The family of this 235-nucleotide RNA sequence from Diatraea saccharalis is "RNase MRP". From the family's description: RNase MRP is an enzymatically active ribonucleoprotein with two distinct roles in eukaryotes. In mitochondria it plays a direct role in the initiation of mitochondrial DNA replication. In the nucleus it is involved in precursor rRNA processing, where it cleaves the internal transcribed spacer 1 between 18S and 5.8S rRNAs. Despite distinct functions, RNase MRP has been shown to be evolutionarily related to RNase P. Like eukaryotic RNase P, RNase MRP is not catalytically active without associated protein subunits. Lineage of the source: Eukaryota > Eumetazoa > Bilateria > Neoptera > Diatraea. By type it is a ribozyme. A search with the family's covariance model found it, with a score of 88 bits. The family's consensus secondary structure is taken from published work.

RNA sequence: GGGUUCCAACCAGUUCAACUUUCGGGGUCACAAACAGAACCUUCGUGGUUACUUUUACCCUGUGGAAAGUCCCCGGAGGCGAGGCGGAAAGCGCCGUAUCGUGAAGAUGAUGACCGAGUUGGUGCCGUAGGGAAGGUUAACCUAUGCGGUGUUAUACUCGCGUAUUGCUCAGAGCAAAGUUAAUGUUGACGGGCGAUAGAGCCUAAACCAAAUGGGGCUUACUCGGUUCGGAACC
Numbered sequence: 001g002g003g004u005u006c007c008a009a010c011c012a013g014u015u016c017a018a019c020u021u022u023c024g025g026g027g028u029c030a031c032a033a034a035c036a037g038a039a040c041c042u043u044c045g046u047g048g049u050u051a052c053u054u055u056u057a058c059c060c061u062g063u064g065g066a067a068a069g070u071c072c073c074c075g076g077a078g079g080c081g082a083g084g085c086g087g088a089a090a091g092c093g094c095c096g097u098a099u100c101g102u103g104a105a106g107a108u109g110a111u112g113a114c115c116g117a118g119u120u121g122g123u124g125c126c127g128u129a130g131g132g133a134a135g136g137u138u139a140a141c142c143u144a145u146g147c148g149g150u151g152u153u154a155u156a157c158u159c160g161c162g163u164a165u166u167g168c169u170c171a172g173a174g175c176a177a178a179g180u181u182a183a184u185g186u187u188g189a190c191g192g193g194c195g196a197u198a199g200a201g202c203c204u205a206a207a208c209c210a211a212a213u214g215g216g217g218c219u220u221a222c223u224c225g226g227u228u229c230g231g232a233a234c235c
Stems, first nucleotide, its partner, number of pairs: 002235006008228004015189005023062006038050004067220003071217004083095004097112006116159004122153001125149004135142002192203003